[Rfam]
This 69-nucleotide sequence from Momordica charantia belongs to the Rfam family "Plastid-clpP 5UTR RNA". The family has 343 seed sequences and 2,105 matches in Rfam 15.1. About the family: Plastid clpP is a non-coding RNA (ncRNA) recognised in plastids. It was found in the prime untranslated region (5UTR) of a protease complex subunit (clpP) in plastids, suggesting a posible cis-regulatory function. Pairs were carried over by alignment from the consensus structure, which was predicted with LocARNA. The organism belongs to Momordica, within Eukaryota.
RNA sequence: UAUUAUAUUCAUAGGAAAAAAAAGAAGUAGAUUUAUUCUAUAUUCAAUAAGUAUCAGUACACAAUGGUG
Numbered sequence: 001u002a003u004u005a006u007a008u009u010c011a012u013a014g015g016a017a018a019a020a021a022a023a024g025a026a027g028u029a030g031a032u033u034u035a036u037u038c039u040a041u042a043u044u045c046a047a048u049a050a051g052u053a054u055c056a057g058u059a060c061a062c063a064a065u066g067g068u069g
Base pairs, nucleotide, nucleotide: 003022004021006019008017009016010015044067045066051060052059053058